[Rfam]
RNA sequence: AGGCGGUCCCCUCGCAACGAUAGAUAGCGAACCCGGCCAGGCCCGGAAGGGAGCAACCGUAGUUAUCAAAUCGUGUGCCGAGGUGUGGCUGUCUGGG
Numbered sequence: 001a002g003g004c005g006g007u008c009c010c011c012u013c014g015c016a017a018c019g020a021u022a023g024a025u026a027g028c029g030a031a032c033c034c035g036g037c038c039a040g041g042c043c044c045g046g047a048a049g050g051g052a053g054c055a056a057c058c059g060u061a062g063u064u065a066u067c068a069a070a071u072c073g074u075g076u077g078c079c080g081a082g083g084u085g086u087g088g089c090u091g092u093c094u095g096g097g
Stems, first nucleotide, its partner, number of pairs: 004091005010083005015075001017074005023067006034059003042051003

This 97-nucleotide RNA sequence from marine gamma proteobacterium HTCC2148 belongs to the Rfam family "Bacterial small signal recognition particle RNA". The organism belongs to Halieaceae, within Bacteria. A search with the family's covariance model found it, with a score of 78 bits. It is annotated as a non-coding RNA gene.